RNA sequence: UGACCACUUUUCCAUCGGAAAAGGCAGGCAUACGGACAGCCGGGUCAAAUUGCCGA
Numbered sequence: 001u002g003a004c005c006a007c008u009u010u011u012c013c014a015u016c017g018g019a020a021a022a023g024g025c026a027g028g029c030a031u032a033c034g035g036a037c038a039g040c041c042g043g044g045u046c047a048a049a050u051u052g053c054c055g056a
Stems, first nucleotide, its partner, number of pairs: 001047005007023007
Dot-bracket structure: (((((.(((((((...)))))))...................))))).........
RNA: Streptococcus sRNA SpF59 (ldcC RNA)
Organism: Ruminococcaceae bacterium BL-4